RNA sequence: AAUUGACAUUAGUGAUUCAUUAGCAGAACCUUGGCCAACAGCUAAAUAAGCAUUCAUACCUAACUCUUUCAUCUGUUGUUUGCCCAAAACACUAGCAUUAAUAUGUUUAUUACUAUUAGCUAACUCAUGAGCUUUAGAGGCAAGAUAGGCUGAGUUACAGAUAUUAGGUGGCAUAUUAGCUAAAUCUUUAGC
Numbered sequence: 001a002a003u004u005g006a007c008a009u010u011a012g013u014g015a016u017u018c019a020u021u022a023g024c025a026g027a028a029c030c031u032u033g034g035c036c037a038a039c040a041g042c043u044a045a046a047u048a049a050g051c052a053u054u055c056a057u058a059c060c061u062a063a064c065u066c067u068u069u070c071a072u073c074u075g076u077u078g079u080u081u082g083c084c085c086a087a088a089a090c091a092c093u094a095g096c097a098u099u100a101a102u103a104u105g106u107u108u109a110u111u112a113c114u115a116u117u118a119g120c121u122a123a124c125u126c127a128u129g130a131g132c133u134u135u136a137g138a139g140g141c142a143a144g145a146u147a148g149g150c151u152g153a154g155u156u157a158c159a160g161a162u163a164u165u166a167g168g169u170g171g172c173a174u175a176u177u178a179g180c181u182a183a184a185u186c187u188u189u190a191g192c
Stems, first nucleotide, its partner, number of pairs: 005186002012032001014030001016028003033043003050059001062077003078132005092119004097114001099112005133160002137156002141152002164183004169178001
Shown here is a 192-nucleotide sequence from Candidatus Palibaumannia cicadellinicola, a member of the family "Yersinia sRNA 276". It scores 100 bits against the family's covariance model. For this family Rfam cites "Transcriptomic profiling of Yersinia pseudotuberculosis reveals reprogramming of the Crp regulon by temperature and uncovers Crp as a master regulator of small RNAs" (Nuss et al., PLoS Genet, 2015). The organism belongs to Candidatus Palibaumannia cicadellinicola, within Bacteria.